[Rfam]
RNA sequence: UUGCGCAACUAGUGUUUUGAUCAGCAAUAUUCGCAAUCCGCUGCCGCAGCUGUCGCCGUAUUCUUAUUUCCAGAAUCACUGCCCGGACAUCAGUCCACGGCGGCUGACCCAAUCAGGACAGCCGCGGCCAGCAAUCCCACAGGGUUGUGCUCGGCCCCCGGGCUACACACUGUCCAGAAGACGGCGUGAGGUGAGCCGGCGUCAAAAGCGUCGAGCACGGACAAAAUUAUCAAGGGGAGGCCUAAGGGCCUCCCU
Numbered sequence: 001u002u003g004c005g006c007a008a009c010u011a012g013u014g015u016u017u018u019g020a021u022c023a024g025c026a027a028u029a030u031u032c033g034c035a036a037u038c039c040g041c042u043g044c045c046g047c048a049g050c051u052g053u054c055g056c057c058g059u060a061u062u063c064u065u066a067u068u069u070c071c072a073g074a075a076u077c078a079c080u081g082c083c084c085g086g087a088c089a090u091c092a093g094u095c096c097a098c099g100g101c102g103g104c105u106g107a108c109c110c111a112a113u114c115a116g117g118a119c120a121g122c123c124g125c126g127g128c129c130a131g132c133a134a135u136c137c138c139a140c141a142g143g144g145u146u147g148u149g150c151u152c153g154g155c156c157c158c159c160g161g162g163c164u165a166c167a168c169a170c171u172g173u174c175c176a177g178a179a180g181a182c183g184g185c186g187u188g189a190g191g192u193g194a195g196c197c198g199g200c201g202u203c204a205a206a207a208g209c210g211u212c213g214a215g216c217a218c219g220g221a222c223a224a225a226a227u228u229a230u231c232a233a234g235g236g237g238a239g240g241c242c243u244a245a246g247g248g249c250c251u252c253c254c255u
Stems, first nucleotide, its partner, number of pairs: 001012003043057001045055002076194005081163004085096004100125005108117002126156004130151001133146005166188003170184005195216002197213006234255004239250004
Shown here is a 255-nucleotide RNA sequence from Pseudomonas sp. HLS-6, a member of the family "Pseudomonas sRNA P24". The base pairs follow the family's consensus structure, which was predicted with RNAalifold. NCBI's taxonomy places the organism under Bacteria, Pseudomonadati, Pseudomonadota, Pseudomonadales, Pseudomonas. The match comes from Rfam's covariance-model search (247 bits).